Ribosomal protein L10 leader: a 153-nucleotide RNA sequence from Ruminiclostridium sufflavum. By type it is a cis-regulatory leader. The source organism's lineage runs through Bacteria, Bacillati, Bacillota, Clostridia and Ruminiclostridium sufflavum. On this family, see Yakhnin et al., Nucleic Acids Res 2015: "Ribosomal protein L10(L12)4 autoregulates expression of the Bacillus subtilis rplJL operon by a transcription attenuation mechanism".

RNA sequence: AGACAAUUAAAUAGUAUGCCAUAGACAGUAGGUGCAAGGUAUUUUUAUAUGCCGAUGCGUAAUUGACUGUAGUCAUCCUGCCGAGGUUGAAUUAAUAAUGGUUAAUCACCCUUUGUUUGUUUAUGUGCAUGCAAAGGGUUUUAUUUUUUUGCA
Numbered sequence: 001a002g003a004c005a006a007u008u009a010a011a012u013a014g015u016a017u018g019c020c021a022u023a024g025a026c027a028g029u030a031g032g033u034g035c036a037a038g039g040u041a042u043u044u045u046u047a048u049a050u051g052c053c054g055a056u057g058c059g060u061a062a063u064u065g066a067c068u069g070u071a072g073u074c075a076u077c078c079u080g081c082c083g084a085g086g087u088u089g090a091a092u093u094a095a096u097a098a099u100g101g102u103u104a105a106u107c108a109c110c111c112u113u114u115g116u117u118u119g120u121u122u123a124u125g126u127g128c129a130u131g132c133a134a135a136g137g138g139u140u141u142u143a144u145u146u147u148u149u150u151g152c153a
Stems, first nucleotide, its partner, number of pairs: 028081005034058003109138008118129003